[Rfam]
RNA sequence: GUUCUGUUUCAGGGCGGAGUGAAAGUCUCCACCGGCAGUGAAUCAGUUUCUGUACUGUAAGUCUGCGAGCCUUAUGGCAUGAUGGGUGAGAAUCCCAACCGACGGUUAAAGUCCGGAUGAAAGAAACAGGUG
Numbered sequence: 001g002u003u004c005u006g007u008u009u010c011a012g013g014g015c016g017g018a019g020u021g022a023a024a025g026u027c028u029c030c031a032c033c034g035g036c037a038g039u040g041a042a043u044c045a046g047u048u049u050c051u052g053u054a055c056u057g058u059a060a061g062u063c064u065g066c067g068a069g070c071c072u073u074a075u076g077g078c079a080u081g082a083u084g085g086g087u088g089a090g091a092a093u094c095c096c097a098a099c100c101g102a103c104g105g106u107u108a109a110a111g112u113c114c115g116g117a118u119g120a121a122a123g124a125a126a127c128a129g130g131u132g
Stems, first nucleotide, its partner, number of pairs: 003130008017029003031112002033101002035066004061099002069078003083097004103115003
Shown here is a 132-nucleotide sequence from Butyricicoccus pullicaecorum, a member of the family "FMN riboswitch aptamer (RFN element)". The family's consensus secondary structure is taken from published work. Its family is annotated with FMN binding in the Gene Ontology. It scores 95 bits against the family's covariance model.